[Rfam]
RNA sequence: UAUCACUAAAGAUUGUUUUUCUUACGCUAUUUCCUAUGAGAAACGGAAUAAAUUAAAACCAUCAGAAUCGUCUUGGUUUUAACUAUAAGAAUGGAUAAAGGACCUG
Numbered sequence: 001u002a003u004c005a006c007u008a009a010a011g012a013u014u015g016u017u018u019u020u021c022u023u024a025c026g027c028u029a030u031u032u033c034c035u036a037u038g039a040g041a042a043a044c045g046g047a048a049u050a051a052a053u054u055a056a057a058a059c060c061a062u063c064a065g066a067a068u069c070g071u072c073u074u075g076g077u078u079u080u081a082a083c084u085a086u087a088a089g090a091a092u093g094g095a096u097a098a099a100g101g102a103c104c105u106g
Stems, first nucleotide, its partner, number of pairs: 020041005026035001058077004064071001
The record is a 106-nucleotide RNA from Vibrio aerogenes, which matches "gltS RNA" in Rfam. It is annotated as a cis-regulatory element.